Rfam assigns this 181-nucleotide RNA from Carnobacterium maltaromaticum to the family "Listeria sRNA rli28".
The organism belongs to Carnobacterium maltaromaticum, within Bacteria.
[Rfam]
RNA sequence: UGCAACAUGCUAUAAUUAUCUUGUAGAAAGUUAAAUGGAUGGUGGCUAGCUCGUUGUAAAAAGGGGGCGAUGCCUAUGUUUUUAGUGUUUGCUCCUAGAAAGGAUUAAACGUGUCAGUUUUUGAAGCGUUGAUGUUCGCACUUACGUUCACAACUCUGGCUUUAAAAAUUUAUGAUCAUAA
Numbered sequence: 001u002g003c004a005a006c007a008u009g010c011u012a013u014a015a016u017u018a019u020c021u022u023g024u025a026g027a028a029a030g031u032u033a034a035a036u037g038g039a040u041g042g043u044g045g046c047u048a049g050c051u052c053g054u055u056g057u058a059a060a061a062a063g064g065g066g067g068c069g070a071u072g073c074c075u076a077u078g079u080u081u082u083u084a085g086u087g088u089u090u091g092c093u094c095c096u097a098g099a100a101a102g103g104a105u106u107a108a109a110c111g112u113g114u115c116a117g118u119u120u121u122u123g124a125a126g127c128g129u130u131g132a133u134g135u136u137c138g139c140a141c142u143u144a145c146g147u148u149c150a151c152a153a154c155u156c157u158g159g160c161u162u163u164a165a166a167a168a169u170u171u172a173u174g175a176u177c178a179u180a181a
Stems, first nucleotide, its partner, number of pairs: 042154002045151001063096008113133003117129002120126001159176001161174001164171002
The literature on the family includes a 1991 paper in Neuroendocrinology by Michels et al., "Muscarinic cholinergic control of vasopressin secretion from the acute hypothalamoneurohypophysial explant". The family's consensus secondary structure was predicted with RNAalifold.